[Rfam]
Rfam assigns this 54-nucleotide RNA from Coregonus sp. 'balchen' to the family "UnaL2 LINE 3' element". The family's RNA type in Rfam is cis-regulatory element. Rfam's curators write: The eel long interspersed element (LINE) UnaL2 and its partner short interspersed element (SINE) share a conserved 3' tail containing a stem-loop that is critical for their retrotransposition. Presumably, the first step of retrotransposition is the recognition of their 3' tails by UnaL2-encoded reverse transcriptase. The solution structure of a 17-nucleotide RNA derived from the 3' tail of UnaL2 was determined by NMR. Lineage of the source: Eukaryota > Eumetazoa > Actinopterygii > Teleostei > Coregonus. The base pairs follow the family's consensus structure, which is taken from published work. The family has 30 seed sequences and 493,311 matches in Rfam 15.1.
RNA sequence: UACACUCACUACUAUAUGUCGUUCUGGAUAAGAGCGUCUGUUAAAUGACUAAAA
Numbered sequence: 001u002a003c004a005c006u007c008a009c010u011a012c013u014a015u016a017u018g019u020c021g022u023u024c025u026g027g028a029u030a031a032g033a034g035c036g037u038c039u040g041u042u043a044a045a046u047g048a049c050u051a052a053a054a
Base pairs, nucleotide, nucleotide: 013043014041015040016039020036021035022034023033024032025031